Rfam assigns this 79-nucleotide RNA from Pseudonaja textilis to the family "mir-980 microRNA precursor family".
A search with the family's covariance model found it, with a score of 51 bits.
Rfam links the family to the GO terms RISC complex and miRNA-mediated post-transcriptional gene silencing.
Pairs were carried over by alignment from the consensus structure, which was predicted with RNAalifold.
[Rfam]
RNA sequence: ACUCAAAGGUGCUUUUUCAAAAGGCAACUGGAUUGUUUUUUUACCCUUCCAGCUGCCUUUUGAAAAAGCAUCUUUGAGA
Numbered sequence: 001a002c003u004c005a006a007a008g009g010u011g012c013u014u015u016u017u018c019a020a021a022a023g024g025c026a027a028c029u030g031g032a033u034u035g036u037u038u039u040u041u042u043a044c045c046c047u048u049c050c051a052g053c054u055g056c057c058u059u060u061u062g063a064a065a066a067a068g069c070a071u072c073u074u075u076g077a078g079a
Stems, first nucleotide, its partner, number of pairs: 004076012017063004023057002028052005